[Rfam]
RNA: DUF805b RNA
RNA sequence: UAGGCAGCAUCCGAAAAGCCCUUAACAGAGUAGGAA
Numbered sequence: 001u002a003g004g005c006a007g008c009a010u011c012c013g014a015a016a017a018g019c020c021c022u023u024a025a026c027a028g029a030g031u032a033g034g035a036a
Stems, first nucleotide, its partner, number of pairs: 003020003010035003